A member of the RNA family "permuted transfer-messenger RNA" from Hartmannibacter diazotrophicus, 221 nucleotides long. A search with the family's covariance model found it, with a score of 145 bits.
[Rfam]
RNA sequence: GACGAUAAAUGGUUGGCGCAAUAAACCUAUCGGACCCGGGGGCGGUACCCGGCGCCUCCACCCAAGCCCAUGGCACUGAUUUUCCAUGGGUUUCGGCGGGGGCGAAAUAGGAUCGACGAGGGCGUAAAGGUCAUACUUUCGUUCGGCAUGGUACCACCGAUAUCGGGCCAAACUUGAUAGUUGCCAACGACAACUAUGCUCCGGUGGCUGUCGCCGCGUAA
Numbered sequence: 001g002a003c004g005a006u007a008a009a010u011g012g013u014u015g016g017c018g019c020a021a022u023a024a025a026c027c028u029a030u031c032g033g034a035c036c037c038g039g040g041g042g043c044g045g046u047a048c049c050c051g052g053c054g055c056c057u058c059c060a061c062c063c064a065a066g067c068c069c070a071u072g073g074c075a076c077u078g079a080u081u082u083u084c085c086a087u088g089g090g091u092u093u094c095g096g097c098g099g100g101g102g103c104g105a106a107a108u109a110g111g112a113u114c115g116a117c118g119a120g121g122g123c124g125u126a127a128a129g130g131u132c133a134u135a136c137u138u139u140c141g142u143u144c145g146g147c148a149u150g151g152u153a154c155c156a157c158c159g160a161u162a163u164c165g166g167g168c169c170a171a172a173c174u175u176g177a178u179a180g181u182u183g184c185c186a187a188c189g190a191c192a193a194c195u196a197u198g199c200u201c202c203g204g205u206g207g208c209u210g211u212c213g214c215c216g217c218g219u220a221a
Base pairs, nucleotide, nucleotide: 001143002142003141004140005139014133015132016131017130026122027121028120030119031118032117036052037051038050039049040048053104054103055102056101057100058099059098144159145158146157
Dot-bracket structure: (((((........((((........(((.(((...(((((.......)))))(((((((......................................)))))))............)))))).......)))).....)))))(((..........)))..............................................................
NCBI's taxonomy places the organism under Bacteria, Pseudomonadati, Pseudomonadota, Pleomorphomonadaceae, Hartmannibacter. The base pairs follow the family's consensus structure, which is taken from published work.